[Rfam]
RNA sequence: UGGAAAUGAUGAUGACUCUAUCUGAUUACCAUUGAUGAAAAAAAUGUUUUCUAGAUAGUCAAGUACUGAUCCAG
Numbered sequence: 001u002g003g004a005a006a007u008g009a010u011g012a013u014g015a016c017u018c019u020a021u022c023u024g025a026u027u028a029c030c031a032u033u034g035a036u037g038a039a040a041a042a043a044a045u046g047u048u049u050u051c052u053a054g055a056u057a058g059u060c061a062a063g064u065a066c067u068g069a070u071c072c073a074g
Stems, first nucleotide, its partner, number of pairs: 001073004
The family of this 74-nucleotide sequence from Aquarana catesbeiana is "Small nucleolar RNA SNORD20". About the family: U20 is a C/D box small nucleolar RNA that is encoded in intron 11 of the nucleolin gene in human, mouse and rat. The match comes from Rfam's covariance-model search (59 bits).